Record summary: This 137-nucleotide sequence from Donghicola eburneus belongs to the Rfam family "Alphaproteobacterial ar14". From the family's description: Smr14C2 was renamed NfeR1 (Nodule Formation Efficiency RNA) highly expressed in salt stress and during the symbiotic interaction on legume roots. On this family, see del Val et al., RNA Biol 2012: "A survey of sRNA families in alpha-proteobacteria". Rfam 15.1 lists 784 matches to the family in 332 species. The family's RNA type in Rfam is small RNA.
[Rfam]
RNA sequence: GAUCAGCGGCGAUAUCCUCUCCUCCUCCCUGGAUAUCGCCGCACCCUAAUCCGAAAUCAGAGGCUGCUCUCCUCCUCCCUGCAGCAUCUGUAUUUUAGCGGUGGCGCCUCUCCUCCUCCCUGGCGCCACCGCUUUUU
Numbered sequence: 001g002a003u004c005a006g007c008g009g010c011g012a013u014a015u016c017c018u019c020u021c022c023u024c025c026u027c028c029c030u031g032g033a034u035a036u037c038g039c040c041g042c043a044c045c046c047u048a049a050u051c052c053g054a055a056a057u058c059a060g061a062g063g064c065u066g067c068u069c070u071c072c073u074c075c076u077c078c079c080u081g082c083a084g085c086a087u088c089u090g091u092a093u094u095u096u097a098g099c100g101g102u103g104g105c106g107c108c109u110c111u112c113c114u115c116c117u118c119c120c121u122g123g124c125g126c127c128a129c130c131g132c133u134u135u136u137u
Base pairs, nucleotide, nucleotide: 007041008040009039011037012036013035014034015033016032017031058090059089060088061087063085064084065083066082067081098132099131100130101129102128103127104126105125106124107123108122
Dot-bracket structure: ......(((.(((((((.............))))))).)))................((((.(((((.............))))).)))).......(((((((((((.............))))))))))).....